[Rfam]
RNA sequence: UGACUUUCACACAACAAAAGCCCUACCUCUCUUUUGUCCUUGCGGCUCCGAAGACCGCGCCAGUUUGAAUGAAAAUAAAAUCUAAAAU
Numbered sequence: 001u002g003a004c005u006u007u008c009a010c011a012c013a014a015c016a017a018a019a020g021c022c023c024u025a026c027c028u029c030u031c032u033u034u035u036g037u038c039c040u041u042g043c044g045g046c047u048c049c050g051a052a053g054a055c056c057g058c059g060c061c062a063g064u065u066u067g068a069a070u071g072a073a074a075a076u077a078a079a080a081u082c083u084a085a086a087a088u
Stems, first nucleotide, its partner, number of pairs: 034068003039063002041059005047053001